This 50-nucleotide RNA sequence from Paracoccus liaowanqingii belongs to the Rfam family "Xanthine riboswitch aptamer (NMT1 RNA)". The base pairs follow the family's consensus structure, which is taken from published work. The source organism's lineage runs through Bacteria, Pseudomonadati, Pseudomonadota, Rhodobacterales and Paracoccus. A search with the family's covariance model found it, with a score of 40 bits. The literature on the family includes a 2020 paper in RNA by Yu and Breaker, "A bacterial riboswitch class senses xanthine and uric acid to regulate genes associated with purine oxidation". Rfam links the family to the GO term purine nucleobase binding.
RNA sequence: CCCCGGAGUAGAAGCGUCCGAAGCCCUGCGCUUUGGGAAUUGCUCCUCAA
Numbered sequence: 001c002c003c004c005g006g007a008g009u010a011g012a013a014g015c016g017u018c019c020g021a022a023g024c025c026c027u028g029c030g031c032u033u034u035g036g037g038a039a040u041u042g043c044u045c046c047u048c049a050a
Base pairs, nucleotide, nucleotide: 005046006045007044008043009042010041015035018037019036021033022032023031024030